Annotation
The record is a 110-nucleotide RNA from Micromonospora sicca, which matches "Actinobacteria sRNA Ms_IGR-7" in Rfam. On this family, see Li et al., RNA 2013: "Identification of small RNAs in Mycobacterium smegmatis using heterologous Hfq". A search with the family's covariance model found it, with a score of 62 bits. By type it is a small RNA.
[Rfam]
RNA sequence: GCGAGGUGCCCUCUCGAGCGAUAGAAGCGUGAGAACUCCUAUCCUUCCAGCUCAGAGGGCACUUUCUAUCUCCGGGGUCCCGCCGACCCGACAUUCAUCGGUGGAUCGAG
Number, nucleotide and partner (000 for none) at each position: 001g000002c000003g065004a064005g063006g062007u061008g060009c059010c058011c057012u056013c055014u000015c000016g053017a052018g000019c000020g043021a042022u041023a000024g039025a000026a037027g036028c000029g000030u000031g000032a000033g000034a000035a000036c027037u026038c000039c024040u000041a022042u021043c020044c000045u000046u000047c000048c000049a000050g000051c000052u017053c016054a000055g013056a012057g011058g010059g009060c008061a007062c006063u005064u004065u003066c000067u000068a000069u000070c000071u000072c000073c000074g000075g000076g000077g000078u000079c000080c000081c000082g000083c000084c000085g000086a000087c000088c000089c000090g000091a000092c108093a106094u105095u104096c103097a102098u000099c000100g000101g000102u097103g096104g095105a094106u093107c000108g092109a000110g000